[Rfam]
RNA: U12 minor spliceosomal RNA
RNA sequence: GUGCCUCAAUCUAUUGAGUAAGGAAAUUAUUGGGCCUUGGUGACUCUAGGCAAUGUCCUACUAGGGCGAAACUAUUUUUGCAAGGCACAGGUCGUCCCGCGGACUGCUCACCUACUUUGUGCGCGGUCUCGGUGAAGCGAUCUCGCCG
Number, nucleotide and partner (000 for none) at each position: 001g000002u000003g000004c023005c022006u021007c000008a019009a000010u000011c000012u000013a000014u000015u000016g000017a000018g000019u008020a000021a006022g005023g004024a000025a000026a000027u000028u000029a000030u000031u000032g000033g000034g051035c050036c049037u048038u000039g046040g000041u000042g000043a000044c000045u000046c039047u000048a037049g036050g035051c034052a000053a000054u068055g067056u066057c065058c064059u000060a000061c000062u000063a000064g058065g057066g056067c055068g054069a000070a000071a000072c000073u000074a000075u000076u000077u000078u000079u000080g000081c000082a000083a000084g147085g146086c145087a000088c000089a143090g142091g141092u140093c139094g138095u137096c000097c000098c132099g000100c000101g129102g128103a127104c126105u125106g000107c123108u000109c121110a120111c119112c000113u000114a000115c000116u000117u000118u000119g111120u110121g109122c000123g107124c000125g105126g104127u103128c102129u101130c000131g000132g098133u000134g000135a000136a000137g095138c094139g093140a092141u091142c090143u089144c000145g086146c085147c084148g000